A member of the RNA family "A. fumigatus sRNA Afu_309" from Ascosphaera apis, 388 nucleotides long. Rfam classes the family as a small RNA. The match comes from Rfam's covariance-model search (218 bits). The family's consensus secondary structure was predicted with WAR. For this family Rfam cites "Small ncRNA transcriptome analysis from Aspergillus fumigatus suggests a novel mechanism for regulation of protein synthesis" (Jochl et al., Nucleic Acids Res, 2008). The family has 10 seed sequences and 663 matches in Rfam 15.1.
RNA sequence: CUCCCAUACACAAACACAGAUCUGUGUCAGGCAGUCCCGUUCACUGGGUCUUGUUGCCCUCUGGGCGACUUGUAUUCGGUGUUUCGGUUGAUCGCCUGUCAGUUCGACGACCCAAGGAGCCACCACAGGAUGGACUCGCUUCAUCCCAGGGUGUCAAUUUCCGGUCGACAGAUCUCAGAACGAGUCCCGACUCCUUGAUUCUCUCAUCUUGAGCUCCCUUUGGCCUUCUCUCUGAGAAGCCGCUGGUGAGCUCGGUGAGGUGGCUUGGAGUUGGUAGGCGUCAUAUUCCACCUCCCUUUACCGAUUGUCUUUGAUUCCUUUUACGAGGAGUUGGAGAUCUGGCCGUCGGCUGAUGAGGUUAGGGAAAAACCAUGACAUGCCAACAUAU
Numbered sequence: 001c002u003c004c005c006a007u008a009c010a011c012a013a014a015c016a017c018a019g020a021u022c023u024g025u026g027u028c029a030g031g032c033a034g035u036c037c038c039g040u041u042c043a044c045u046g047g048g049u050c051u052u053g054u055u056g057c058c059c060u061c062u063g064g065g066c067g068a069c070u071u072g073u074a075u076u077c078g079g080u081g082u083u084u085c086g087g088u089u090g091a092u093c094g095c096c097u098g099u100c101a102g103u104u105c106g107a108c109g110a111c112c113c114a115a116g117g118a119g120c121c122a123c124c125a126c127a128g129g130a131u132g133g134a135c136u137c138g139c140u141u142c143a144u145c146c147c148a149g150g151g152u153g154u155c156a157a158u159u160u161c162c163g164g165u166c167g168a169c170a171g172a173u174c175u176c177a178g179a180a181c182g183a184g185u186c187c188c189g190a191c192u193c194c195u196u197g198a199u200u201c202u203c204u205c206a207u208c209u210u211g212a213g214c215u216c217c218c219u220u221u222g223g224c225c226u227u228c229u230c231u232c233u234g235a236g237a238a239g240c241c242g243c244u245g246g247u248g249a250g251c252u253c254g255g256u257g258a259g260g261u262g263g264c265u266u267g268g269a270g271u272u273g274g275u276a277g278g279c280g281u282c283a284u285a286u287u288c289c290a291c292c293u294c295c296c297u298u299u300a301c302c303g304a305u306u307g308u309c310u311u312u313g314a315u316u317c318c319u320u321u322u323a324c325g326a327g328g329a330g331u332u333g334g335a336g337a338u339c340u341g342g343c344c345g346u347c348g349g350c351u352g353a354u355g356a357g358g359u360u361a362g363g364g365a366a367a368a369a370c371c372a373u374g375a376c377a378u379g380c381c382a383a384c385a386u387a388u
Stems, first nucleotide, its partner, number of pairs: 018175008026100001028098004034092003037087003042081008053069002056066004108167005116155002119152003188270001192269003197264001205257004211253006217246002277381003280376005293365005300359003341351004
Dot-bracket structure: .................(((((((((.((((..((((((..((((((((...((.((((...)))).))....))))))))...)))..)))..)))).).......(((((...((.(((............................))).)).......)))))))))))))............(...(((..(.......((((..((((((((..........................)).))))))))))......)..))))......((((((((........(((((..(((......................................((((...)))).....))).)))))......)))))..))).......